Notes: Rfam assigns this 92-nucleotide sequence from Polypterus senegalus to the family "Small nucleolar RNA SNORD35". The family is grouped with related families in Rfam's "SNORD35 clan". From the family's description: U35 is a C/D box snoRNA located in intron 6 of ribosomal protein L13A and intron 3 of ribosomal protein S11 in humans and at homologous positions in mouse and chicken ribosomal protein genes. Pairs were carried over by alignment from the consensus structure, which was predicted with PFOLD. A reference for the family is Nicoloso et al. (1996), "Intron-encoded, antisense small nucleolar RNAs: the characterization of nine novel species points to their direct role as guides for the 2'-O-ribose methylation of rRNAs", J Mol Biol. Gene Ontology terms of the family: nucleolus and RNA processing.

RNA sequence: UGCAUAUGAUGUUUUUCUCACGAUGGUCUUCCAAGCUUCAGGUGUAAGAGGCCUUGACGAAAUCUGCCUUUAGGCACUGCUGAUGCGGCUUG
Dot-bracket structure: ((((...............................................................................)))).....